[Rfam]
RNA sequence: ACCUCCUACAAAGGCGUGUCUAUGGUUCCCUGUCUUUGGAUACGUAAGAACCGGAGGUAAAGAAAUGUGGACCUGAAGAAAUUUGGGGCCAGCUUGCUCCUCGCUGGCUCAAGAUCAGCAGUCCCACAUGG
Numbered sequence: 001a002c003c004u005c006c007u008a009c010a011a012a013g014g015c016g017u018g019u020c021u022a023u024g025g026u027u028c029c030c031u032g033u034c035u036u037u038g039g040a041u042a043c044g045u046a047a048g049a050a051c052c053g054g055a056g057g058u059a060a061a062g063a064a065a066u067g068u069g070g071a072c073c074u075g076a077a078g079a080a081a082u083u084u085g086g087g088g089c090c091a092g093c094u095u096g097c098u099c100c101u102c103g104c105u106g107g108c109u110c111a112a113g114a115u116c117a118g119c120a121g122u123c124c125c126a127c128a129u130g131g
Base pairs, nucleotide, nucleotide: 002057003056004055005054006053015044016043017042018041019040020039021038024030025029069124070123071122073121091109092108093107094106096104097103
Background: The record is a 131-nucleotide sequence from Sorex araneus, which matches "Small nucleolar RNA SNORA38" in Rfam. ACA38 is a member of the H/ACA class of snoRNA that guide the sites of modification of uridines to pseudouridines. Its family is annotated with Cajal body, nucleolus and RNA processing in the Gene Ontology. It is annotated as an H/ACA-box small nucleolar RNA. The sequence is in the family's curated seed alignment.